RNA sequence: GUGCCUCAUAAGAGAGCACAGCCGCGUGUUAAUAGCCGAGUUUCAUUGGCCGAAAAUCGGUGGUUAGUGAAUC
Numbered sequence: 001g002u003g004c005c006u007c008a009u010a011a012g013a014g015a016g017c018a019c020a021g022c023c024g025c026g027u028g029u030u031a032a033u034a035g036c037c038g039a040g041u042u043u044c045a046u047u048g049g050c051c052g053a054a055a056a057u058c059g060g061u062g063g064u065u066a067g068u069g070a071a072u073c
Stems, first nucleotide, its partner, number of pairs: 001019004005014003029067005035061005041055003
Dot-bracket structure: (((((((....))).)))).........(((((.(((((.(((.........))).))))).)))))......

Background:
The family of this 73-nucleotide sequence is "L13-Bacteroidia ribosomal protein leader". A reference for the family is Eckert and Weinberg (2020), "Discovery of 20 novel ribosomal leader candidates in bacteria and archaea", BMC Microbiol. It is one of the family's seed sequences.